[Rfam]
This 269-nucleotide RNA from Nicotiana tabacum belongs to the Rfam family "Plant signal recognition particle RNA". The source organism's lineage runs through Eukaryota, Tracheophyta, Euphyllophyta, asterids and Nicotiana. The base pairs follow the family's consensus structure, which is taken from published work. Its Rfam clan is "SRP clan".
RNA sequence: GCCGAGCUCAGUGACGUGGGCUUGUAACUCAAGUGGGGGCAUUAAUGUGGUGGAAUUCUGGGCUGUCCCAAAAGGUUGGAUUUGGUGGGCUCAAAUCUGGCCUGCCCUGUCCAAGCAUAGAGUUGGGUCACGUGGCCCGGGUGGACCGCGUGAGGCUGGUUUCACAGAGCAACGAACAGCUCCCGUUCUGUGCAGUGGAAGGAUAACGGGCCGGUGCUUUCCAAGUCCAGCAACGCCUAAUGGGCUGCUCCAAUUAAACCACCAUUUUU
Number, nucleotide and partner (000 for none) at each position: 001g040002c039003c038004g023005a022006g021007c020008u019009c018010a017011g000012u000013g000014a000015c000016g000017u010018g009019g008020g007021c006022u005023u004024g000025u000026a000027a000028c037029u036030c035031a000032a000033g000034u000035g030036g029037g028038g003039g002040c001041a000042u000043u000044a268045a267046u000047g265048u264049g263050g262051u261052g260053g259054a000055a000056u256057u000058c000059u252060g251061g249062g248063c247064u000065g245066u244067c000068c243069c242070a241071a000072a000073a238074g237075g236076u235077u000078g228079g227080a226081u225082u224083u223084g222085g221086u000087g219088g218089g217090c000091u216092c000093a000094a000095a000096u000097c214098u213099g212100g211101c210102c209103u208104g207105c000106c202107c201108u000109g000110u199111c198112c197113a196114a000115g193116c192117a191118u190119a189120g188121a187122g186123u185124u000125g138126g137127g136128u135129c134130a000131c000132g000133u000134g129135g128136c127137c126138c125139g184140g183141g180142u179143g000144g000145a000146c000147c000148g000149c174150g173151u172152g000153a000154g000155g000156c167157u166158g165159g000160u000161u000162u000163c000164a000165c158166a157167g156168a000169g000170c000171a000172a151173c150174g149175a000176a000177c000178a000179g142180c141181u000182c000183c140184c139185g123186u122187u121188c120189u119190g118191u117192g116193c115194a000195g000196u113197g112198g111199a110200a000201g107202g106203a000204u000205a000206a000207c104208g103209g102210g101211c100212c099213g098214g097215u000216g091217c089218u088219u087220u000221c085222c084223a083224a082225g081226u080227c079228c078229a000230g000231c000232a000233a000234c000235g076236c075237c074238u073239a000240a000241u070242g069243g068244g066245c065246u000247g063248c062249u061250c000251c060252a059253a000254u000255u000256a056257a000258a000259c053260c052261a051262c050263c049264a048265u047266u000267u045268u044269u000